[Rfam]
RNA sequence: ACUGACCGUAGCUGAGAAAACGUAUCAAAUACUGUUUUGAGGGUUUUGCUCAAGUACAAUGUUGUGUUUGCAUAUAGUCUAAGAGUCUUAACUUUAUAAAUCUUAAUGUUGAGAGCCUAGACGUUGAGUGGUUAAGGCUACUCAUUCACUUCCUGUAUAUUUUUAACCGUUUUGGUUCUAUGCCACCCAUUUGGGUGGUUUUUUUAC
Numbered sequence: 001a002c003u004g005a006c007c008g009u010a011g012c013u014g015a016g017a018a019a020a021c022g023u024a025u026c027a028a029a030u031a032c033u034g035u036u037u038u039g040a041g042g043g044u045u046u047u048g049c050u051c052a053a054g055u056a057c058a059a060u061g062u063u064g065u066g067u068u069u070g071c072a073u074a075u076a077g078u079c080u081a082a083g084a085g086u087c088u089u090a091a092c093u094u095u096a097u098a099a100a101u102c103u104u105a106a107u108g109u110u111g112a113g114a115g116c117c118u119a120g121a122c123g124u125u126g127a128g129u130g131g132u133u134a135a136g137g138c139u140a141c142u143c144a145u146u147c148a149c150u151u152c153c154u155g156u157a158u159a160u161u162u163u164u165a166a167c168c169g170u171u172u173u174g175g176u177u178c179u180a181u182g183c184c185a186c187c188c189a190u191u192u193g194g195g196u197g198g199u200u201u202u203u204u205u206a207c
Stems, first nucleotide, its partner, number of pairs: 005050001011049002017047005025040005076124001077122005127142006159176003182199007
RNA: GcvB RNA
Organism: Nicoletella semolina